A member of the RNA family "U5 spliceosomal RNA" from Gossypium harknessii, 117 nucleotides long. About the family: U5 RNA is a component of both types of known spliceosome. The precise function of this molecule is unknown, though it is known that the 5' loop is required for splice site selection and p220 binding, and that both the 3' stem-loop and the Sm site are important for Sm protein binding and cap methylation.
RNA sequence: AGCUGCUCUGUGAGCACAUAGCGAACUAUUCUUUCGCCUUUUACUAAAGAAUACCGUGUGCUCGCAGCUUAAGGCAGUAUACGCCUAUUUUUGGAGGUUUAAUUCCUUUAUUGGAAU
Numbered sequence: 001a002g003c004u005g006c007u008c009u010g011u012g013a014g015c016a017c018a019u020a021g022c023g024a025a026c027u028a029u030u031c032u033u034u035c036g037c038c039u040u041u042u043a044c045u046a047a048a049g050a051a052u053a054c055c056g057u058g059u060g061c062u063c064g065c066a067g068c069u070u071a072a073g074g075c076a077g078u079a080u081a082c083g084c085c086u087a088u089u090u091u092u093g094g095a096g097g098u099u100u101a102a103u104u105c106c107u108u109u110a111u112u113g114g115a116a117u
Stems, first nucleotide, its partner, number of pairs: 003077004008067011027053008095117001098115005

Rfam 15.1 lists 28,527 matches to the family in 2,489 species. By type it is a spliceosomal small nuclear RNA. Taxonomically the source falls in Gossypium (Eukaryota, Magnoliopsida, Mesangiospermae, Malvoideae).